[Rfam]
RNA sequence: CUGCAGCCAAUUAAGCUAAGGAUGCUCUCCCCUGGGGGCCUAGUGUGCAGCGGUUGCAAACAGUAGUGUAUGCAGCCCAUUGUUUGUAUUGGUUGCCCUAAGGGUCCUUGGAGACAGCC
Numbered sequence: 001c002u003g004c005a006g007c008c009a010a011u012u013a014a015g016c017u018a019a020g021g022a023u024g025c026u027c028u029c030c031c032c033u034g035g036g037g038g039c040c041u042a043g044u045g046u047g048c049a050g051c052g053g054u055u056g057c058a059a060a061c062a063g064u065a066g067u068g069u070a071u072g073c074a075g076c077c078c079a080u081u082g083u084u085u086g087u088a089u090u091g092g093u094u095g096c097c098c099u100a101a102g103g104g105u106c107c108u109u110g111g112a113g114a115c116a117g118c119c
Stems, first nucleotide, its partner, number of pairs: 002049004019044001022041001025038004073095005
RNA: Small nucleolar RNA SNORA70
Organism: Ailuropoda melanoleuca